[Rfam]
RNA sequence: AAGACACGCUAGGGGAGCCAAUUGGCUGAGAAUGGAAUUUUUCACAUGACCCUCACUACUUGAACCGGAUAAUGCCGGCGUAAGGAAGCAGUAUGAUUCAUAC
Numbered sequence: 001a002a003g004a005c006a007c008g009c010u011a012g013g014g015g016a017g018c019c020a021a022u023u024g025g026c027u028g029a030g031a032a033u034g035g036a037a038u039u040u041u042u043c044a045c046a047u048g049a050c051c052c053u054c055a056c057u058a059c060u061u062g063a064a065c066c067g068g069a070u071a072a073u074g075c076c077g078g079c080g081u082a083a084g085g086a087a088g089c090a091g092u093a094u095g096a097u098u099c100a101u102a103c
Stems, first nucleotide, its partner, number of pairs: 008089003011053004016047001017026003033046002037042001059084004065078004
RNA: TPP riboswitch aptamer (THI element)